The family of this 128-nucleotide RNA sequence from Sorex araneus is "Small nucleolar RNA SNORA49".
NCBI's taxonomy places the organism under Eukaryota, Opisthokonta, Deuterostomia, Eulipotyphla, Sorex.
[Rfam]
RNA sequence: CUCCCUCAGCCUUACUCCAGGGGCUUUUGCCUGUAGAGUGCCCUGGCAUUGCCUGAGGGUACAGGAAAAGCGCACUUCCCUCCCCAGGAAGACUGUGUCCACUGGGGCCUACAAGGUGAGCUGACAGC
Numbered sequence: 001c002u003c004c005c006u007c008a009g010c011c012u013u014a015c016u017c018c019a020g021g022g023g024c025u026u027u028u029g030c031c032u033g034u035a036g037a038g039u040g041c042c043c044u045g046g047c048a049u050u051g052c053c054u055g056a057g058g059g060u061a062c063a064g065g066a067a068a069a070g071c072g073c074a075c076u077u078c079c080c081u082c083c084c085c086a087g088g089a090a091g092a093c094u095g096u097g098u099c100c101a102c103u104g105g106g107g108c109c110u111a112c113a114a115g116g117u118g119a120g121c122u123g124a125c126a127g128c
Base pairs, nucleotide, nucleotide: 003059004058005057006056007055008054009053011051017046018045019044020043021042022041023039024038025037026036027035069122070121071120073118074117082107083106084105085104086103087102091099092098